Notes: Rfam assigns this 104-nucleotide RNA sequence from Thermococcus sibiricus to the family "Pab19 RNA". It is annotated as an H/ACA-box small nucleolar RNA. The match comes from Rfam's covariance-model search (78 bits). Rfam's curators write: By using various computational and experimental approaches in three Pyrococcus genomes seven H/ACA sRNAs and 15 pseudouridine resides on rRNA were identified. One H/ACA motif was shown to guide up to three distinct pseudouridylations. The base pairs follow the family's consensus structure. Rfam links the family to the GO term RNA processing. Taxonomically the source falls in Thermococcus sibiricus (Archaea, Methanobacteriota, Thermococcaceae, Thermococcus). The literature on the family includes a 2008 paper in Nucleic Acids Res by Muller et al., "Combined in silico and experimental identification of the Pyrococcus abyssi H/ACA sRNAs and their target sites in ribosomal RNAs".
RNA sequence: GCGCCCGAAUAAGGGUGCCCACAACCCAGGCAUAAAACGGCGGCGUCGAGGGGAGUUGGUGCAAAGCACCCAACAAUGAACCCCGCCCUCCAGCCUUGGGUACA
Numbered sequence: 001g002c003g004c005c006c007g008a009a010u011a012a013g014g015g016u017g018c019c020c021a022c023a024a025c026c027c028a029g030g031c032a033u034a035a036a037a038c039g040g041c042g043g044c045g046u047c048g049a050g051g052g053g054a055g056u057u058g059g060u061g062c063a064a065a066g067c068a069c070c071c072a073a074c075a076a077u078g079a080a081c082c083c084c085g086c087c088c089u090c091c092a093g094c095c096u097u098g099g100g101u102a103c104a
Stems, first nucleotide, its partner, number of pairs: 001018006023101001025099002028096004047085002050082002055074004059069004